This 90-nucleotide sequence from Senna tora belongs to the Rfam family "Small nucleolar RNA snoR27". For this family Rfam cites "Multiple snoRNA gene clusters from Arabidopsis" (Brown et al., RNA, 2001). It scores 77 bits against the family's covariance model.

RNA sequence: UAUGGAUCUAUGAUGCUAAUUUUAAACUGCGUUAUCUAUCUGAAUUUCCCCGACGGAAUUGAAGAUAACCUAUAUAUACUGAGAUCCGUU
Dot-bracket structure: .((((((............................................................................)))))).